RNA: ALIL pseudoknot
RNA sequence: CGCGUUUUUCGCGCAGGCGGAGCUCGACCGCCUCAAGAAGAAGUGAGAUUGUUCAUCGACCAGCAGCGUGAGCGUUUCGGGGUCGAGCCGAUCUGCAAGUUGUUGCAGGUUGCCCCG
Numbered sequence: 001c002g003c004g005u006u007u008u009u010c011g012c013g014c015a016g017g018c019g020g021a022g023c024u025c026g027a028c029c030g031c032c033u034c035a036a037g038a039a040g041a042a043g044u045g046a047g048a049u050u051g052u053u054c055a056u057c058g059a060c061c062a063g064c065a066g067c068g069u070g071a072g073c074g075u076u077u078c079g080g081g082g083u084c085g086a087g088c089c090g091a092u093c094u095g096c097a098a099g100u101u102g103u104u105g106c107a108g109g110u111u112g113c114c115c116c117g
Base pairs, nucleotide, nucleotide: 016032017031018030019029020028078117079116080115081114082113089112090111092109093108094107095106096105097104098103